[Rfam]
RNA sequence: AGAAGGGCUUCCGCGGUUCGCCGUUCGGGGGCCUUUUUCUUUUGC
Numbered sequence: 001a002g003a004a005g006g007g008c009u010u011c012c013g014c015g016g017u018u019c020g021c022c023g024u025u026c027g028g029g030g031g032c033c034u035u036u037u038u039c040u041u042u043u044g045c
Stems, first nucleotide, its partner, number of pairs: 005034008015025003

Rfam assigns this 45-nucleotide RNA from Mesorhizobium sp. J18 to the family "ctRNA". The base pairs follow the family's consensus structure, which is taken from published work. Rfam's curators write: This family represents a group of ctRNAs (or counter-transcribed RNAs) from p42d and related plasmids. ctRNAs are small, highly structured, antisense sequences which are involved in negative regulation. Members of this family are known to bind to the mRNA of repC causing translational repression. This model contains the predicted stem-loop structure followed by a U-rich tract which is proposed to act as a Rho-independent transcriptional terminator. Rfam classes the family as an antisense RNA.